[Rfam]
RNA: Small nucleolar RNA SNORD66
Organism: Upupa epops
RNA sequence: CUCCUGUGAUGAACUCUUUGCCACUGUGUCUGGGCCACUGAUGGUCUGUGAUGGUAAUGAGGAUCUGAGGGAG
Numbered sequence: 001c002u003c004c005u006g007u008g009a010u011g012a013a014c015u016c017u018u019u020g021c022c023a024c025u026g027u028g029u030c031u032g033g034g035c036c037a038c039u040g041a042u043g044g045u046c047u048g049u050g051a052u053g054g055u056a057a058u059g060a061g062g063a064u065c066u067g068a069g070g071g072a073g
Stems, first nucleotide, its partner, number of pairs: 001073004